[Rfam]
RNA: ssNA-helicase RNA
RNA sequence: UACUAUAAAGGGGAGUAUUACCCUUUAUAGUAGCAACGUAGCAGUAGCA
Number, nucleotide and partner (000 for none) at each position: 001u032002a031003c030004u029005a028006u027007a026008a025009a024010g023011g022012g000013g000014a000015g000016u000017a000018u000019u000020a000021c000022c011023c010024u009025u008026u007027a006028u005029a004030g003031u002032a001033g000034c000035a000036a000037c000038g000039u000040a000041g000042c000043a000044g000045u000046a000047g000048c000049a000